[Rfam]
RNA sequence: GUAUCCUUCGCGAAUGAUCAGAAUCCUGAACGCACUUCGACGUCGCCGCUCGCCGCUUCCCUAGGGAUGCCGCUGGCUCGUCAUGCAUUUGCGCUCACGGUUCGGUCUUGCCGAAACGUACGAAAUGAAGCCACGGACAUUCCGUGGCUUUUGU
Numbered sequence: 001g002u003a004u005c006c007u008u009c010g011c012g013a014a015u016g017a018u019c020a021g022a023a024u025c026c027u028g029a030a031c032g033c034a035c036u037u038c039g040a041c042g043u044c045g046c047c048g049c050u051c052g053c054c055g056c057u058u059c060c061c062u063a064g065g066g067a068u069g070c071c072g073c074u075g076g077c078u079c080g081u082c083a084u085g086c087a088u089u090u091g092c093g094c095u096c097a098c099g100g101u102u103c104g105g106u107c108u109u110g111c112c113g114a115a116a117c118g119u120a121c122g123a124a125a126u127g128a129a130g131c132c133a134c135g136g137a138c139a140u141u142c143c144g145u146g147g148c149u150u151u152u153g154u
Stems, first nucleotide, its partner, number of pairs: 007123002010094003031085002038080003042077003045073002048070002053065001127151010